This 170-nucleotide sequence belongs to the Rfam family "RT-2 RNA". By type it is a small RNA.
RNA sequence: UCUGACGGCCCGCGCCGUCGGACAAACAUAUACCACGAUACGGGGAGCCGGACGCUUCUUGCAUGGGUGCGGCGCGUAUGCCCGCCGCGCUUUCAUGGCUCCGCGUUACGCAUUUUAGACGGCAUACCGAGAAAGAAAUGUACGAGGUAUCAAUUUUUAUUAUGAACAGC
Numbered sequence: 001u002c003u004g005a006c007g008g009c010c011c012g013c014g015c016c017g018u019c020g021g022a023c024a025a026a027c028a029u030a031u032a033c034c035a036c037g038a039u040a041c042g043g044g045g046a047g048c049c050g051g052a053c054g055c056u057u058c059u060u061g062c063a064u065g066g067g068u069g070c071g072g073c074g075c076g077u078a079u080g081c082c083c084g085c086c087g088c089g090c091u092u093u094c095a096u097g098g099c100u101c102c103g104c105g106u107u108a109c110g111c112a113u114u115u116u117a118g119a120c121g122g123c124a125u126a127c128c129g130a131g132a133a134a135g136a137a138a139u140g141u142a143c144g145a146g147g148u149a150u151c152a153a154u155u156u157u158u159a160u161u162a163u164g165a166a167c168a169g170c
Base pairs, nucleotide, nucleotide: 001022002021003020004019005018006017007016008015009014030150031149032148033147034146036144037143039142040106041105042104044102045101046100047099048098049097054062055061065092066091067090068089069088070087071086072085073084074083110141111140112139113138114137116136118127